[Rfam]
RNA: MIR162_2 microRNA precursor family
RNA sequence: GCCUGGGGGCAGUGGUUUAUCGAUCUAUUCCCUGCCUUGUGUAGCUGUGCUGAUCCGAUGUGCUGUCUCUUAAUGAUACAACGCAGGAAUCGAUCGAUAAACCUCUGCAUCCAGAU
Numbered sequence: 001g002c003c004u005g006g007g008g009g010c011a012g013u014g015g016u017u018u019a020u021c022g023a024u025c026u027a028u029u030c031c032c033u034g035c036c037u038u039g040u041g042u043a044g045c046u047g048u049g050c051u052g053a054u055c056c057g058a059u060g061u062g063c064u065g066u067c068u069c070u071u072a073a074u075g076a077u078a079c080a081a082c083g084c085a086g087g088a089a090u091c092g093a094u095c096g097a098u099a100a101a102c103c104u105c106u107g108c109a110u111c112c113a114g115a116u
Base pairs, nucleotide, nucleotide: 003114004113005112006111007110009108010107011106012105014103015102016101017100018099019098020097021096022095023094024093025092028089029088030087031086034084035083037081038080039079040078041077042076